[Rfam]
Rfam assigns this 75-nucleotide RNA from Streptomyces sp. YIM 121038 to the family "ASpks TB sRNA".

RNA sequence: CUUGACCGAACCGAGCAACAACGGCUGACCCGCAGGCCGGUCCUGGCCGUACGUCGCAAGCAGCGCCUGCGCCUC
Numbered sequence: 001c002u003u004g005a006c007c008g009a010a011c012c013g014a015g016c017a018a019c020a021a022c023g024g025c026u027g028a029c030c031c032g033c034a035g036g037c038c039g040g041u042c043c044u045g046g047c048c049g050u051a052c053g054u055c056g057c058a059a060g061c062a063g064c065g066c067c068u069g070c071g072c073c074u075c
Stems, first nucleotide, its partner, number of pairs: 014026003031071003038065002043060002047056001049054001

Notes:
The family's RNA type in Rfam is antisense RNA. A reference for the family is Arnvig and Young (2009), "Identification of small RNAs in Mycobacterium tuberculosis", Mol Microbiol. Rfam 15.1 lists 9,052 matches to the family in 683 species.